[Rfam]
RNA sequence: GUAGGCUACGGGGAUAUGGCCCCGAAAACCUACGCGGGAAUGUUUGUCGGAGCACUCUGCGCCCUGGCCGGAGUGUUGACCAUUGCGCUGCCAGUACCUGUUAUUGUAUCCAAU
Numbered sequence: 001g002u003a004g005g006c007u008a009c010g011g012g013g014a015u016a017u018g019g020c021c022c023c024g025a026a027a028a029c030c031u032a033c034g035c036g037g038g039a040a041u042g043u044u045u046g047u048c049g050g051a052g053c054a055c056u057c058u059g060c061g062c063c064c065u066g067g068c069c070g071g072a073g074u075g076u077u078g079a080c081c082a083u084u085g086c087g088c089u090g091c092c093a094g095u096a097c098c099u100g101u102u103a104u105u106g107u108a109u110c111c112a113a114u
Stems, first nucleotide, its partner, number of pairs: 001114002004111002007108005013102004018097001021094001037077002040074001049063002